[Rfam]
RNA sequence: ACUGUGGGUGAUGAAAGUACGUCCUUAGGUUGGUCUCUUUUUGGCCGUUUUGGUCAAAACCAUGAGCCUUCCAAUGUUGGGAUCAGUCAUAGUUACACUGACACAUU
Dot-bracket structure: (.((((...............................................................................................)))).)
This 107-nucleotide RNA sequence from Chanos chanos belongs to the Rfam family "Small nucleolar RNA SNORD46".
The family has 5 seed sequences and 723 matches in Rfam 15.1.
It scores 54 bits against the family's covariance model.
By type it is a C/D-box small nucleolar RNA.
About the family: U40 is a C/D box small nucleolar RNA, also known as snoZ153 in plants. The human sequence has also been annotated in the sequence databases as U46. U40 is encoded in intron 2 of the ribosomal protein S8 gene in human, and is hypothesised to guide methylation of 2'-O-ribose residues on 28S ribosomal RNA. This family represents vertebrate U40.
Its Rfam clan is "SNORD46 clan".
The literature on the family includes a 1996 paper in J Mol Biol by Nicoloso et al., "Intron-encoded, antisense small nucleolar RNAs: the characterization of nine novel species points to their direct role as guides for the 2'-O-ribose methylation of rRNAs".